[Rfam]
RNA: Saccharopolyspora sRNA 350
Organism: Actinomadura sp. KC345
Nucleotides: 503
Stems, first nucleotide, its partner, number of pairs: 006385001008383003013379001015377001022320002024317002027314002031310001035303003042298006049228001053224001055222001057220003060106004072097004077092005114215001121208002124205002126201002129198002133194001135192001139190001145186001148184001150182001152180002155178001158172001161169002229291001231289001235285006246276004251272003255266001257264001324337003346374003350370003357365002386426007394418002398413001400411001402410001432471001434469002437466005442460003446456002472502002475497003480492001482491002
Number, partner (000 for none) and nucleotide at each position: 001000c002000u003000g004000c005000g006385g007000a008383u009382c010381c011000u012000c013379g014000c015377c016000c017000u018000c019000c020000u021000c022320g023319g024317u025316g026000c027314c028313g029000a030000g031310c032000a033000g034000g035303g036302c037301c038000c039000g040000c041000u042298c043297g044296c045295c046294g047293a048000a049228g050000a051000a052000g053224u054000c055222g056000c057220c058219g059218u060106c061105g062104g063103c064000g065000a066000g067000c068000g069000u070000c071000c072097c073096g074095a075094g076000c077092a078091c079090g080089g081088c082000c083000u084000c085000g086000g087000c088081g089080c090079c091078g092077u093000a094075c095074u096073c097072g098000c099000c100000g101000g102000c103063g104062c105061c106060g107000a108000u109000c110000c111000u112000g113000c114215u115000g116000a117000g118000c119000u120000u121208g122207c123000c124205g125204u126201g127200c128000g129198c130197g131000a132000c133194g134000a135192g136000g137000a138000u139190g140000a141000c142000g143000c144000g145186g146000u147000c148184g149000a150182c151000g152180g153179g154000a155178c156000g157000g158172c159000c160000c161169c162168g163000c164000u165000c166000g167000a168162c169161g170000a171000c172158g173000a174000c175000g176000u177000c178155g179153c180152c181000g182150g183000g184148c185000u186145c187000g188000u189000a190139c191000u192135c193000c194133u195000g196000c197130u198129g199000g200127g201126u202000g203000a204125a205124c206000c207122g208121c209000c210000c211000c212000g213000c214000g215114a216000u217000g218059g219058c220057g221000u222055c223000c224053a225000g226000c227000g228049u229291g230000a231289g232000g233000u234000c235285g236284u237283c238282g239281u240280c241000g242000u243000a244000g245000c246276c247275g248274c249273g250000c251272a252271g253270c254000g255266g256000c257264g258000g259000c260000a261000g262000c263000u264257c265000u266255c267000c268000c269000a270253g271252c272251u273249c274248g275247c276246g277000c278000g279000g280240g281239a282238u283237g284236a285235c286000g287000c288000g289231c290000a291229c292000g293047u294046c295045g296044g297043c298042g299000c300000c301037g302036g303035u304000g305000g306000u307000c308000a309000c310031g311000a312000a313028c314027g315000u316025c317024a318000c319023c320022c321000g322000c323000c324337c325336g326335u327000c328000g329000c330000c331000g332000a333000g334000c335326g336325u337324g338000u339000a340000g341000g342000u343000g344000a345000g346374c347373c348372g349000c350370c351369g352368g353000u354000u355000g356000a357365c358364g359000c360000g361000g362000u363000a364358c365357g366000c367000g368352c369351c370350g371000c372348c373347g374346g375000c376000c377015g378000c379013c380000u381010g382009g383008a384000c385006c386426c387425a388424g389423g390422g391421c392420a393000g394418c395417a396000g397000c398413u399000u400411c401000a402410g403000c404000a405000g406000c407000c408000a409000u410402c411400g412000c413398g414000a415000g416000g417395u418394g419000a420392u421391g422390c423389c424388c425387u426386g427000c428000a429000u430000c431000u432471g433000g434469g435468g436000g437466a438465c439464g440463g441462a442460c443459u444458u445000g446456g447455u448000c449000g450000u451000c452000g453000u454000c455447g456446c457000g458444a459443g460442g461000u462441u463440c464439c465438g466437u467000g468435c469434c470000g471432c472502c473501g474000c475497g476496g477495u478000g479000c480492c481000g482491a483490g484000g485000c486000u487000c488000a489000a490483c491482u492480g493000c494000c495477g496476c497475u498000g499000u500000u501473c502472g503000c